[Rfam]
RNA: mir-308 microRNA precursor family
RNA sequence: CACGCGAUAUUAUUCCUGUGAAUUUGUUAGUUACAAUCACAGGAUAAUACUGCGAG
Numbered sequence: 001c002a003c004g005c006g007a008u009a010u011u012a013u014u015c016c017u018g019u020g021a022a023u024u025u026g027u028u029a030g031u032u033a034c035a036a037u038c039a040c041a042g043g044a045u046a047a048u049a050c051u052g053c054g055a056g
Base pairs, nucleotide, nucleotide: 001056003054004053005052006051008049009048010047011046014044015043016042017041018040019039020038024036025035026034027033